[Rfam]
RNA sequence: CCGAGGGCUUACGCCCUGGGCUAAUAUGACUCGCGCCGUUGGCGCG
Number, nucleotide and partner (000 for none) at each position: 001c020002c019003g000004a017005g016006g015007g014008c013009u000010u000011a000012c000013g008014c007015c006016c005017u004018g000019g002020g001021c000022u000023a000024a000025u000026a000027u000028g000029a000030c000031u000032c000033g045034c044035g043036c042037c041038g000039u000040u000041g037042g036043c035044g034045c033046g000
Rfam assigns this 46-nucleotide RNA from Candidatus Moduliflexus flocculans to the family "Acido-Lenti-1 RNA". It is annotated as a small RNA. A search with the family's covariance model found it, with a score of 37 bits.